[Rfam]
RNA sequence: CUGAGAAAAUAUUAAUAUUUUUUAUUAAGAGUUGUUCACCUUGAGUAUGUUGGUCUUGGGUAAGUUUAA
Numbered sequence: 001c002u003g004a005g006a007a008a009a010u011a012u013u014a015a016u017a018u019u020u021u022u023u024a025u026u027a028a029g030a031g032u033u034g035u036u037c038a039c040c041u042u043g044a045g046u047a048u049g050u051u052g053g054u055c056u057u058g059g060g061u062a063a064g065u066u067u068a069a
Stems, first nucleotide, its partner, number of pairs: 002068003008026004
The family of this 69-nucleotide RNA sequence from Cetraspora pellucida is "Small nucleolar RNA SNORD56". By type it is a C/D-box small nucleolar RNA. The source organism's lineage runs through Eukaryota, Glomeromycotina, Glomeromycetes, Gigasporaceae and Cetraspora. The literature on the family includes a 2002 paper in Mol Cell Biol by Galardi et al., "Purified box C/D snoRNPs are able to reproduce site-specific 2'-O-methylation of target RNA in vitro".